[Rfam]
RNA sequence: GGGGUCAGGGAGGGUGGGGGAUCUCGCCAAUCCCUAUUACCCGCAAGGCGUAAUGCGGGCACCAGUAACUCCUACCCUAUGGUGUCUCCUAUCUGUAGGUCCCAGUGGAGCGAUGAAGCCUGCCCAGCGGGGCUUGGCGGUCAUGGGCUUUCUCUCCGGAGGGAGAGAAAGUACCAUGAUAGCUGGGGGAAUCGGCGAGGCCCGGAAGGGAGCAGCCGUGCCUGGACGCCAGCGUUCGCUGGUCAACAGCCAGAGUGAAACUGGGGUAAACCUAUAGAUAGGUAGGCCAUGGGGUAGGGGGUCUGGCCCCAU
Numbered sequence: 001g002g003g004g005u006c007a008g009g010g011a012g013g014g015u016g017g018g019g020g021a022u023c024u025c026g027c028c029a030a031u032c033c034c035u036a037u038u039a040c041c042c043g044c045a046a047g048g049c050g051u052a053a054u055g056c057g058g059g060c061a062c063c064a065g066u067a068a069c070u071c072c073u074a075c076c077c078u079a080u081g082g083u084g085u086c087u088c089c090u091a092u093c094u095g096u097a098g099g100u101c102c103c104a105g106u107g108g109a110g111c112g113a114u115g116a117a118g119c120c121u122g123c124c125c126a127g128c129g130g131g132g133c134u135u136g137g138c139g140g141u142c143a144u145g146g147g148c149u150u151u152c153u154c155u156c157c158g159g160a161g162g163g164a165g166a167g168a169a170a171g172u173a174c175c176a177u178g179a180u181a182g183c184u185g186g187g188g189g190a191a192u193c194g195g196c197g198a199g200g201c202c203c204g205g206a207a208g209g210g211a212g213c214a215g216c217c218g219u220g221c222c223u224g225g226a227c228g229c230c231a232g233c234g235u236u237c238g239c240u241g242g243u244c245a246a247c248a249g250c251c252a253g254a255g256u257g258a259a260a261c262u263g264g265g266g267u268a269a270a271c272c273u274a275u276a277g278a279u280a281g282g283u284a285g286g287c288c289a290u291g292g293g294g295u296a297g298g299g300g301g302u303c304u305g306g307c308c309c310c311a312u
Base pairs, nucleotide, nucleotide: 002309003308004307005306006305007304008303009302013063014062015061016060017035018034019033020032021031022030040059041058042057043056044055045054069300070299071298072297073296074295075294077292078291079290080289081288082287083285088282089281090280091279092278093277094276095275096274097273098272099267100266101265102264103263104262105261106260110256111255118251120249121248122247124242125241126240127239128238129237130236131235132233133232134231136230137229138228139227140180141179142178143177144176145175146174147172148171149170150169151168152167153166154165155164156163157162183225184224185223187222188221193218194217195216196215201210202209203208